RNA: Small nucleolar RNA SNORA74
RNA sequence: UCCAGCAGGGGUCAGCUCUCCAGACAGAAUCAUGCCUGUGAGGGUGUUACACUGCUAGGAGAGGAAUGCCCUGUCUUCUUCCUCCAGUAGCUCCCUUCACUGCUCUGGUGACAUGUGGCACUGGUGCAGGCAGAACUGUGCUUCCAUGAGAGUCAGCUAAGCAUCACUUUGGUUGCUUUUGUUCUAGUGAAGGUGCAGACAAA
Number, nucleotide and partner (000 for none) at each position: 001u059002c058003c000004a056005g055006c054007a053008g052009g000010g000011g050012u049013c000014a000015g045016c044017u043018c042019u041020c040021c038022a037023g036024a000025c034026a000027g000028a000029a000030u000031c000032a000033u000034g025035c000036c023037u022038g021039u000040g020041a019042g018043g017044g016045u015046g000047u000048u000049a012050c011051a000052c008053u007054g006055c005056u004057a000058g002059g001060a000061g000062a000063g000064g000065a000066a000067u000068g136069c000070c000071c133072u132073g131074u130075c129076u128077u000078c000079u000080u000081c000082c126083u000084c124085c123086a122087g000088u000089a000090g119091c118092u117093c000094c115095c000096u111097u000098c110099a109100c108101u107102g000103c000104u000105c000106u000107g101108g100109u099110g098111a096112c000113a000114u000115g094116u000117g092118g091119c090120a000121c000122u086123g085124g084125u000126g082127c000128a076129g075130g074131c073132a072133g071134a000135a000136c068137u000138g000139u197140g196141c195142u000143u193144c192145c000146a000147u000148g000149a000150g000151a000152g000153u000154c000155a183156g182157c000158u000159a179160a178161g177162c000163a174164u000165c000166a000167c000168u000169u000170u000171g000172g000173u000174u163175g000176c000177u161178u160179u159180u000181g000182u156183u155184c000185u000186a000187g000188u000189g000190a000191a000192g144193g143194u000195g141196c140197a139198g000199a000200c000201a000202a000203a000